Shown here is a 98-nucleotide RNA sequence from Sulfurimonas hongkongensis, a member of the family "Bacterial small signal recognition particle RNA". Rfam describes the family as follows. The signal recognition particle (SRP) is a universally conserved ribonucleoprotein involved in the co-translational targeting of proteins to membranes. Rfam classes the family as a non-coding RNA gene. A reference for the family is Regalia et al. (2002), "Prediction of signal recognition particle RNA genes", Nucleic Acids Res. Pairs were carried over by alignment from the consensus structure, which is taken from published work. Clan: SRP clan. The source organism's lineage runs through Bacteria, Pseudomonadati, Epsilonproteobacteria, Sulfurimonadaceae and Sulfurimonas.
RNA sequence: UCUUUAGACCUGUGCAAUGGUGUUUUGAGACAAUGUGUCAGGGUAGGAAUACAGCAGCACACCUUAAAGCGUUAUGUGCCGCAGUAAUCUGGGGAAGG
Numbered sequence: 001u002c003u004u005u006a007g008a009c010c011u012g013u014g015c016a017a018u019g020g021u022g023u024u025u026u027g028a029g030a031c032a033a034u035g036u037g038u039c040a041g042g043g044u045a046g047g048a049a050u051a052c053a054g055c056a057g058c059a060c061a062c063c064u065u066a067a068a069g070c071g072u073u074a075u076g077u078g079c080c081g082c083a084g085u086a087a088u089c090u091g092g093g094g095a096a097g098g
Stems, first nucleotide, its partner, number of pairs: 004092005010084005015076001017075006024068006034061005043052003